[Rfam]
RNA sequence: GAGCAAUGACGAUUCUUAAUUGGUCUCGUUCGUCUGAAUGGCUAUUCGCCUUGACGACAAUUCUGUUAUAUCACCACCCAUAAACCGAGCUC
Dot-bracket structure: ((((.......................................(......).....................................))))
This 92-nucleotide RNA sequence from Zostera marina belongs to the Rfam family "Small nucleolar RNA Z43". The match comes from Rfam's covariance-model search (76 bits). Gene Ontology terms of the family: RNA processing and nucleolus. It is annotated as a C/D-box small nucleolar RNA. The literature on the family includes a 2003 paper in Nucleic Acids Res by Chen et al., "The high diversity of snoRNAs in plants: identification and comparative study of 120 snoRNA genes from Oryza sativa".